Plastid-rps18 3UTR RNA: a 57-nucleotide RNA sequence from Capsicum baccatum. The literature on the family includes a 2023 paper in Plant Commun by Richter et al., "Retrograde signaling in plants: A critical review focusing on the GUN pathway and beyond".
[Rfam]
RNA sequence: UGUAAGUAUUUUACGGUUAAGAAGCAACCGUUUAUUGUACAGAUUGUAUAUUAAUUU
Numbered sequence: 001u002g003u004a005a006g007u008a009u010u011u012u013a014c015g016g017u018u019a020a021g022a023a024g025c026a027a028c029c030g031u032u033u034a035u036u037g038u039a040c041a042g043a044u045u046g047u048a049u050a051u052u053a054a055u056u057u
Stems, first nucleotide, its partner, number of pairs: 018037003022033004
The base pairs follow the family's consensus structure, which was predicted with LocARNA.
Taxonomically the source falls in Capsicum (Eukaryota, Streptophyta, Tracheophyta, Mesangiospermae).
Plastid rps18 is a non-coding RNA (ncRNA) present in plastids. It was identified as a short stem-loop motif in the 3 prime untranslate region (3UTR) of rps18 gene.